About this RNA: Shown here is a 208-nucleotide RNA sequence from Peptostreptococcus stomatis, a member of the family "T-box leader". Gene Ontology term of the family: tRNA binding. Uncharged tRNA acts as the effector for transcription antitermination of genes in the T-box leader family. T-boxes are found upstream of many aminoacyl-tRNA synthetase genes and some amino acid biosynthetic genes usually in Gram-positive bacteria. The anticodon of a specific tRNA base pairs to a specifier sequence within the T-box motif, and the NCCA acceptor tail of the tRNA base pairs to a conserved bulge in the T-box antiterminator hairpin. The source organism's lineage runs through Bacteria, Clostridia, Peptostreptococcaceae, Peptostreptococcus and Peptostreptococcus stomatis. For this family Rfam cites "Interaction between the acceptor end of tRNA and the T box stimulates antitermination in the Bacillus subtilis tyrS gene: a new role for the discriminator base" (Grundy et al., J Bacteriol, 1994).

[Rfam]
RNA sequence: UUGAUGGCUAUGAUGGAGCCUAGUAAGUUAAGUCCUGUCUUCAGAGAAUGGGUGGUCGGUGUGAACCCAUGGCAAGUUUUCCUGAAUCUACUCCGGAGCUUCUAGUUUGAAAUAGUACUAGACGUAGGACCUGCGAUAAGGGUUAGAGGUGGGCUAUUUAUAUAGCCAACUAGGGUGGCAACGCGGAAUUAUGACUUUCGUCCCUUAU
Number, nucleotide and partner (000 for none) at each position: 001u000002u000003g000004a000005u000006g000007g099008c098009u000010a000011u000012g000013a000014u000015g094016g093017a092018g091019c000020c000021u000022a000023g000024u000025a000026a083027g082028u000029u000030a079031a078032g000033u000034c000035c000036u000037g073038u072039c071040u000041u000042c000043a000044g000045a000046g000047a000048a070049u069050g068051g067052g066053u065054g000055g000056u000057c000058g000059g000060u000061g000062u000063g000064a000065a053066c052067c051068c050069a049070u048071g039072g038073c037074a000075a000076g000077u000078u031079u030080u000081c000082c027083u026084g000085a000086a000087u000088c000089u000090a000091c018092u017093c016094c015095g000096g000097a000098g008099c007100u000101u000102c121103u120104a119105g118106u117107u000108u115109g000110a000111a000112a000113u000114a000115g108116u000117a106118c105119u104120a103121g102122a000123c135124g134125u133126a000127g000128g000129a000130c000131c000132u000133g125134c124135g123136a000137u000138a000139a000140g000141g000142g000143u000144u000145a000146g000147a000148g000149g000150u000151g000152g167153g166154c165155u164156a163157u162158u000159u000160a000161u000162a157163u156164a155165g154166c153167c152168a000169a000170c000171u000172a205173g204174g203175g202176u000177g000178g000179c000180a000181a000182c000183g201184c200185g199186g198187a197188a000189u000190u000191a000192u000193g000194a000195c000196u000197u187198u186199c185200g184201u183202c175203c174204c173205u172206u000207a000208u000